[Rfam]
RNA sequence: GUUGGUAAAUUGGCAAGAUGUCGGCAUAGCUGACGUUGAAAAGCGAUUUUAAAGAGCGCUAUGCUGCAUCUAGUCAGUUGCUCAAU
Numbered sequence: 001g002u003u004g005g006u007a008a009a010u011u012g013g014c015a016a017g018a019u020g021u022c023g024g025c026a027u028a029g030c031u032g033a034c035g036u037u038g039a040a041a042a043g044c045g046a047u048u049u050u051a052a053a054g055a056g057c058g059c060u061a062u063g064c065u066g067c068a069u070c071u072a073g074u075c076a077g078u079u080g081c082u083c084a085a086u
Stems, first nucleotide, its partner, number of pairs: 005081002008079007016071005022066009

This 86-nucleotide RNA sequence from Drosophila rhopaloa belongs to the Rfam family "mir-31 microRNA precursor family". Its family is annotated with gene silencing by miRNA and RISC complex in the Gene Ontology. Pairs were carried over by alignment from the consensus structure, which was predicted with RNAalifold.